[Rfam]
Description:
Shown here is a 114-nucleotide RNA sequence from Eubacterium sp. AF22-8LB, a member of the family "FMN riboswitch aptamer (RFN element)".
RNA sequence: UUAAAUCUUCAGGGUUGGGUGAAAUUCCCUAUCGGCGGUAAACCCCGCGAGCAAUUUGCAUGAACUGGUGAAAUUCCAGUGGCGACAGUAUAGUCUGGAUGGAAGAAGAUGUUU
Numbered sequence: 001u002u003a004a005a006u007c008u009u010c011a012g013g014g015u016u017g018g019g020u021g022a023a024a025u026u027c028c029c030u031a032u033c034g035g036c037g038g039u040a041a042a043c044c045c046c047g048c049g050a051g052c053a054a055u056u057u058g059c060a061u062g063a064a065c066u067g068g069u070g071a072a073a074u075u076c077c078a079g080u081g082g083c084g085a086c087a088g089u090a091u092a093g094u095c096u097g098g099a100u101g102g103a104a105g106a107a108g109a110u111g112u113u114u
Base pairs, nucleotide, nucleotide: 003112005110006109007108008107009106010105017029018028019027031094032093033084034083035048036047037046038045043082044081064080065079066078067077068076086097087096088095

NCBI's taxonomy places the organism under Bacteria, Bacillati, Eubacteriales, Eubacteriaceae, Eubacterium. The match comes from Rfam's covariance-model search (109 bits).